[Rfam]
RNA sequence: GUCAGGGAGCGAACAAGUCAAAAAAGAGUGAGCCGGCGGCGCUAGGUGCGCGGCCGGCCAAC
Numbered sequence: 001g002u003c004a005g006g007g008a009g010c011g012a013a014c015a016a017g018u019c020a021a022a023a024a025a026g027a028g029u030g031a032g033c034c035g036g037c038g039g040c041g042c043u044a045g046g047u048g049c050g051c052g053g054c055c056g057g058c059c060a061a062c
Base pairs, nucleotide, nucleotide: 032058033057034056035055036054037053039051041049042048
Dot-bracket structure: ...............................((((((.(.((.....)).).))))))....